Shown here is a 416-nucleotide RNA from Magnetofaba australis, a member of the family "Bacterial RNase P class A".
[Rfam]
RNA sequence: GCGGUGGGCCGGACGAUCGCUGGUCCCGGGACUGCUCGCAGUCACCAGGACGGGAGGCAAAGUCCGGGCUCCCAGUUUGUCGCUUUAAGACAGGGCGCCGGGUAACCCCCGGCGGGAGCAAUCCCAGGGAAAGCGCCACAGAGAGCAAACCGCCGCACCGCCCCCGGUCGUUACUGGGGAGCUGCGGUAAGGGUGAAAGGGUGCGGUAAGAGCGCACCGCGCGUCCUGGCAACAGGCGCGGCACGGCAAGCCCCGCCCGGAGCAAGGCCAAAUAGGGGAGACGCGGAUUCGUCCGCUGAUCCCGGGUAGGCUGCUGGAGACGGCCCGCAAGGGUCGCCCUAGAUGAAUGAUCGUCGCCCCGCCCCCUGUGGGAAAGACGCGGGGACCAGAACCCGGCUUACAGGCCCGCCGCGUCC
Numbered sequence: 001g002c003g004g005u006g007g008g009c010c011g012g013a014c015g016a017u018c019g020c021u022g023g024u025c026c027c028g029g030g031a032c033u034g035c036u037c038g039c040a041g042u043c044a045c046c047a048g049g050a051c052g053g054g055a056g057g058c059a060a061a062g063u064c065c066g067g068g069c070u071c072c073c074a075g076u077u078u079g080u081c082g083c084u085u086u087a088a089g090a091c092a093g094g095g096c097g098c099c100g101g102g103u104a105a106c107c108c109c110c111g112g113c114g115g116g117a118g119c120a121a122u123c124c125c126a127g128g129g130a131a132a133g134c135g136c137c138a139c140a141g142a143g144a145g146c147a148a149a150c151c152g153c154c155g156c157a158c159c160g161c162c163c164c165c166g167g168u169c170g171u172u173a174c175u176g177g178g179g180a181g182c183u184g185c186g187g188u189a190a191g192g193g194u195g196a197a198a199g200g201g202u203g204c205g206g207u208a209a210g211a212g213c214g215c216a217c218c219g220c221g222c223g224u225c226c227u228g229g230c231a232a233c234a235g236g237c238g239c240g241g242c243a244c245g246g247c248a249a250g251c252c253c254c255g256c257c258c259g260g261a262g263c264a265a266g267g268c269c270a271a272a273u274a275g276g277g278g279a280g281a282c283g284c285g286g287a288u289u290c291g292u293c294c295g296c297u298g299a300u301c302c303c304g305g306g307u308a309g310g311c312u313g314c315u316g317g318a319g320a321c322g323g324c325c326c327g328c329a330a331g332g333g334u335c336g337c338c339c340u341a342g343a344u345g346a347a348u349g350a351u352c353g354u355c356g357c358c359c360c361g362c363c364c365c366c367u368g369u370g371g372g373a374a375a376g377a378c379g380c381g382g383g384g385a386c387c388a389g390a391a392c393c394c395g396g397c398u399u400a401c402a403g404g405c406c407c408g409c410c411g412c413g414u415c416c
Base pairs, nucleotide, nucleotide: 001412002411003410004409005408006407007406008405009404010403011401012355013354014353015352016351017350018349020054021053023051024050025049026048028046060399061398062397064396065395066394067393068392069262070261071260072259089290090289093258094257095256096255097254098112099111100110101109102108113127114125115124116123117122128253129252133251134250135247136246137245150192151191152188153187154186155185156184157183159181200218201217202216203215204214205213219242220240221239222238223237225236226235227234228233266312267311268310269309276303277302278301279300283296284295285294286293287292319338321336322335323334324333325332326331

It scores 248 bits against the family's covariance model.